[Rfam]
A member of the RNA family "ASpks TB sRNA" from Saccharomonospora piscinae, 75 nucleotides long. By type it is an antisense RNA. A search with the family's covariance model found it, with a score of 77 bits. NCBI's taxonomy places the organism under Bacteria, Bacillati, Actinomycetes, Pseudonocardiaceae, Saccharomonospora.
Nucleotides: 075
Stems, first nucleotide, its partner, number of pairs: 015025003032070002038065002043060001047056003
Number, partner (000 for none) and nucleotide at each position: 001000c002000u003000u004000g005000a006000u007000c008000g009000a010000g011000c012000c013000g014000a015025g016024c017023c018000a019000c020000a021000g022000c023017g024016g025015c026000c027000g028000g029000u030000c031000g032070g033069u034000g035000u036000c037000g038065c039064g040000a041000u042000c043060c044000c045000u046000g047056c048055c049054g050000u051000a052000g053000g054049u055048g056047g057000c058000c059000a060043g061000c062000a063000a064039c065038g066000c067000c068000u069033g070032c071000g072000c073000c074000u075000c